[Rfam]
Source information
U11 spliceosomal RNA: a 130-nucleotide RNA sequence from Arabis nemorensis. Clan: U1 clan. By type it is a spliceosomal small nuclear RNA. The base pairs follow the family's consensus structure, which is taken from published work.
RNA sequence: AAAAAGGGUCGGAUGGCUAUUUAUGCCACGCUCAGCCCAAGAGGGGUGAGUGCUGUAUGGCAAUCAAGACAUAUGGCCGACGUAAUUUCUGGAACAAACCAUAGGGUUGGCUCGCUCGGCCGACCCUCCA
Numbered sequence: 001a002a003a004a005a006g007g008g009u010c011g012g013a014u015g016g017c018u019a020u021u022u023a024u025g026c027c028a029c030g031c032u033c034a035g036c037c038c039a040a041g042a043g044g045g046g047u048g049a050g051u052g053c054u055g056u057a058u059g060g061c062a063a064u065c066a067a068g069a070c071a072u073a074u075g076g077c078c079g080a081c082g083u084a085a086u087u088u089c090u091g092g093a094a095c096a097a098a099c100c101a102u103a104g105g106g107u108u109g110g111c112u113c114g115c116u117c118g119g120c121c122g123a124c125c126c127u128c129c130a
Stems, first nucleotide, its partner, number of pairs: 008081005014028004029052006036045003053076007103127008112119002